[Rfam]
Rfam assigns this 64-nucleotide RNA from Plectonema radiosum to the family "Nitrogen stress-induced RNA 1". The family has 17 seed sequences and 962 matches in Rfam 15.1. Taxonomically the source falls in Plectonema radiosum (Bacteria, Cyanobacteriota, Cyanophyceae, Oscillatoriophycideae). Pairs were carried over by alignment from the consensus structure.

RNA sequence: UGGUAGAUGCACCCUGAUAACUGUCUCCCCCGGUAAGCUUACAAGCACGCUGGGGGAUUUUUAU
Numbered sequence: 001u002g003g004u005a006g007a008u009g010c011a012c013c014c015u016g017a018u019a020a021c022u023g024u025c026u027c028c029c030c031c032g033g034u035a036a037g038c039u040u041a042c043a044a045g046c047a048c049g050c051u052g053g054g055g056g057a058u059u060u061u062u063a064u
Stems, first nucleotide, its partner, number of pairs: 002013003027056008037046001